The record is a 37-nucleotide RNA sequence from Aequorivita sublithincola, which matches "DUF805b RNA" in Rfam.
Lineage of the source: Bacteria > Bacteroidota > Flavobacteriia > Flavobacteriaceae > Aequorivita sublithincola.

RNA sequence: AUGGAGGAACCCGAAAAGCCAGUUUAUAGAGUAGGGA
Dot-bracket structure: .(((.....[[[......)))............]]].
The family is grouped with related families in Rfam's "DUF805 clan".